[Rfam]
RNA sequence: GUGCAAGGACGGCCUUGGUUCACACUCCUCUUGUCUGCGGGACGACCCGC
Numbered sequence: 001g002u003g004c005a006a007g008g009a010c011g012g013c014c015u016u017g018g019u020u021c022a023c024a025c026u027c028c029u030c031u032u033g034u035c036u037g038c039g040g041g042a043c044g045a046c047c048c049g050c
Stems, first nucleotide, its partner, number of pairs: 001020001004017005037050005

The family of this 50-nucleotide RNA sequence from Celerinatantimonas diazotrophica is "Guanidine-II riboswitch aptamer (mini-ykkC)". Gene Ontology term of the family: regulation of gene expression. The match comes from Rfam's covariance-model search (39 bits). Simpler in structure and has fewer highly conserved nucleotide positions than the ykkC-yxkD leader.